[Rfam]
RNA sequence: CGUGCACCGGAGGGGUCCCUCAGCCUGGCCUGCACCCUCUCACAAUCUAGGACCCCUCAGGGGAUGUCAGAGAGCCGGUUUCGGCCCAAUCCUGCAGGCUAGGUUGAGGGACUCCACUGGUGCACA
Numbered sequence: 001c002g003u004g005c006a007c008c009g010g011a012g013g014g015g016u017c018c019c020u021c022a023g024c025c026u027g028g029c030c031u032g033c034a035c036c037c038u039c040u041c042a043c044a045a046u047c048u049a050g051g052a053c054c055c056c057u058c059a060g061g062g063g064a065u066g067u068c069a070g071a072g073a074g075c076c077g078g079u080u081u082c083g084g085c086c087c088a089a090u091c092c093u094g095c096a097g098g099c100u101a102g103g104u105u106g107a108g109g110g111a112c113u114c115c116a117c118u119g120g121u122g123c124a125c126a
Stems, first nucleotide, its partner, number of pairs: 003124002006121001008119003012115014027100008

Rfam assigns this 126-nucleotide RNA from Cnephaeus nilssonii to the family "mir-9193 microRNA precursor family". The match comes from Rfam's covariance-model search (56 bits). The family has 2 seed sequences and 6,008 matches in Rfam 15.1.